Shown here is a 403-nucleotide sequence from Corynebacterium timonense, a member of the family "Bacterial RNase P class A". By type it is a ribozyme. Pairs were carried over by alignment from the consensus structure, which is taken from published work.

RNA sequence: CGAGCCGGCCGGGUGACCGCGGCCUCCCGCACCGCCGCCCCGUGCGGGUCUGGCGGGGGUCGAGGAAAGUCCGGACUCCACAGGGCACGGUGGUUGCUAACAGCAACCCGGAGCGAUCCGCGGGAAAGUGCAACAGAAAGUAGACCGCCAGCCCGUGCGGGUUGGUAAGGGUGAAAGGGUGCGGUAAGAGCGCACCGGCGUGCGUGGUGACACGCGCGGCCAGGUAAACCCCACCGGGAGCAAGGCAAGAGCCCCCGCCGUGUGCGCGGGGGUCGUCGGACGUGCCGAGAGGCUGCCCGCCCAGUCCGAAGGUAGCUGCUUGAGGCGCCCAGCGAUGGGUGGCCCAGAUGGAUGGUCGCCGCCCCACGGGGUACAGAAUCCGGCUUACAGGCCGGCUCGUUCG
Numbered sequence: 001c002g003a004g005c006c007g008g009c010c011g012g013g014u015g016a017c018c019g020c021g022g023c024c025u026c027c028c029g030c031a032c033c034g035c036c037g038c039c040c041c042g043u044g045c046g047g048g049u050c051u052g053g054c055g056g057g058g059g060u061c062g063a064g065g066a067a068a069g070u071c072c073g074g075a076c077u078c079c080a081c082a083g084g085g086c087a088c089g090g091u092g093g094u095u096g097c098u099a100a101c102a103g104c105a106a107c108c109c110g111g112a113g114c115g116a117u118c119c120g121c122g123g124g125a126a127a128g129u130g131c132a133a134c135a136g137a138a139a140g141u142a143g144a145c146c147g148c149c150a151g152c153c154c155g156u157g158c159g160g161g162u163u164g165g166u167a168a169g170g171g172u173g174a175a176a177g178g179g180u181g182c183g184g185u186a187a188g189a190g191c192g193c194a195c196c197g198g199c200g201u202g203c204g205u206g207g208u209g210a211c212a213c214g215c216g217c218g219g220c221c222a223g224g225u226a227a228a229c230c231c232c233a234c235c236g237g238g239a240g241c242a243a244g245g246c247a248a249g250a251g252c253c254c255c256c257g258c259c260g261u262g263u264g265c266g267c268g269g270g271g272g273u274c275g276u277c278g279g280a281c282g283u284g285c286c287g288a289g290a291g292g293c294u295g296c297c298c299g300c301c302c303a304g305u306c307c308g309a310a311g312g313u314a315g316c317u318g319c320u321u322g323a324g325g326c327g328c329c330c331a332g333c334g335a336u337g338g339g340u341g342g343c344c345c346a347g348a349u350g351g352a353u354g355g356u357c358g359c360c361g362c363c364c365c366a367c368g369g370g371g372u373a374c375a376g377a378a379u380c381c382g383g384c385u386u387a388c389a390g391g392c393c394g395g396c397u398c399g400u401u402c403g
Stems, first nucleotide, its partner, number of pairs: 001399010011388001012360007020062008067386003071383005076240004083298004088236005093107005108122001109120004123231002128229002130225002145170002147166008178196006198220001199218008244317003276309006291301003324343001326341006